This 87-nucleotide RNA sequence from Papillibacter cinnamivorans belongs to the Rfam family "c-di-GMP-I riboswitch aptamer". The family's consensus secondary structure is taken from published work. A search with the family's covariance model found it, with a score of 65 bits. GEMM was predicted in a large-scale screen for bacterial structured RNA regulatory elements.

[Rfam]
RNA sequence: AAACGAUAAUAGCAAUUCUGCCGAAAGACAGAAUACGCAAAGCCAAGGGUCUAAAUCCAUUUUUGGACAUGACAGCCGGUUGCCGAC
Numbered sequence: 001a002a003a004c005g006a007u008a009a010u011a012g013c014a015a016u017u018c019u020g021c022c023g024a025a026a027g028a029c030a031g032a033a034u035a036c037g038c039a040a041a042g043c044c045a046a047g048g049g050u051c052u053a054a055a056u057c058c059a060u061u062u063u064u065g066g067a068c069a070u071g072a073c074a075g076c077c078g079g080u081u082g083c084c085g086a087c
Stems, first nucleotide, its partner, number of pairs: 012038002017032004022027001041081004047077002049073003056067004
Dot-bracket structure: ...........((...((((.(....).))))....))..((((..(((((....((((....))))...)))..))))))......
The organism belongs to Papillibacter cinnamivorans, within Bacteria.